[Rfam]
The family of this 87-nucleotide RNA sequence from Triticum turgidum is "MIR1120/MIR1122 microRNA precursor family". The organism belongs to Triticum turgidum, within Eukaryota.

RNA sequence: UUACUCUCACCAUCCCAUUAUAUAAGAGCGUUUUCUACACUAGUGUAGUGUCGAAAACGCUCUUAUAUAAUGGGACGGAGGGAGUAG
Numbered sequence: 001u002u003a004c005u006c007u008c009a010c011c012a013u014c015c016c017a018u019u020a021u022a023u024a025a026g027a028g029c030g031u032u033u034u035c036u037a038c039a040c041u042a043g044u045g046u047a048g049u050g051u052c053g054a055a056a057a058c059g060c061u062c063u064u065a066u067a068u069a070a071u072g073g074g075a076c077g078g079a080g081g082g083a084g085u086a087g
Stems, first nucleotide, its partner, number of pairs: 003085003007081002010078002013075005019069017037051005
The family's consensus secondary structure was predicted with RNAalifold. The match comes from Rfam's covariance-model search (92 bits).